[Rfam]
RNA sequence: GGCAAUAAACGGGCGAUGCAAUAAACCCAUUGGACCCGGGGGCGGUACCCGGCGCCUCCACCAAAAACCGGUCUCCGGAAGCACUCCGACCGGCUUUUGAUGGGGGCGAAAUAGGAUCGACAAGGGUGUAAAGAUCGACUUUUUGCUCGGCAUUGUACCACCGUUAUCGGGCUAAAUUUAUAGUUGCAAACGACAACUAUGCUGAAGCACGUCUCGCUGCCUAA
Numbered sequence: 001g002g003c004a005a006u007a008a009a010c011g012g013g014c015g016a017u018g019c020a021a022u023a024a025a026c027c028c029a030u031u032g033g034a035c036c037c038g039g040g041g042g043c044g045g046u047a048c049c050c051g052g053c054g055c056c057u058c059c060a061c062c063a064a065a066a067a068c069c070g071g072u073c074u075c076c077g078g079a080a081g082c083a084c085u086c087c088g089a090c091c092g093g094c095u096u097u098u099g100a101u102g103g104g105g106g107c108g109a110a111a112u113a114g115g116a117u118c119g120a121c122a123a124g125g126g127u128g129u130a131a132a133g134a135u136c137g138a139c140u141u142u143u144u145g146c147u148c149g150g151c152a153u154u155g156u157a158c159c160a161c162c163g164u165u166a167u168c169g170g171g172c173u174a175a176a177u178u179u180a181u182a183g184u185u186g187c188a189a190a191c192g193a194c195a196a197c198u199a200u201g202c203u204g205a206a207g208c209a210c211g212u213c214u215c216g217c218u219g220c221c222u223a224a
Stems, first nucleotide, its partner, number of pairs: 001147005014137004026126003030123003036052005053108007148163003
permuted transfer-messenger RNA: a 224-nucleotide RNA sequence from Sinorhizobium alkalisoli.
A search with the family's covariance model found it, with a score of 153 bits.
Gene Ontology term of the family: RNA catabolic process.